[Rfam]
RNA sequence: GUAUGAAAUGAUGGUAUUCCAUCUUUCGGGACUGACAUGUCAUGGAGAAGCUUUUUAACUUUUACUGAUCAUAU
Numbered sequence: 001g002u003a004u005g006a007a008a009u010g011a012u013g014g015u016a017u018u019c020c021a022u023c024u025u026u027c028g029g030g031a032c033u034g035a036c037a038u039g040u041c042a043u044g045g046a047g048a049a050g051c052u053u054u055u056u057a058a059c060u061u062u063u064a065c066u067g068a069u070c071a072u073a074u
Stems, first nucleotide, its partner, number of pairs: 001074006
This 74-nucleotide sequence from Ameiurus melas belongs to the Rfam family "Small nucleolar RNA SNORD2".
The match comes from Rfam's covariance-model search (65 bits).
Gene Ontology terms of the family: nucleolus and RNA processing.
On this family, see Zhou et al., Gene 2004: "Identification of a novel box C/D snoRNA from mouse nucleolar cDNA library".
NCBI's taxonomy places the organism under Eukaryota, Craniata, Clupeocephala, Ictaluridae, Ameiurus.
The base pairs follow the family's consensus structure, which was predicted with WAR.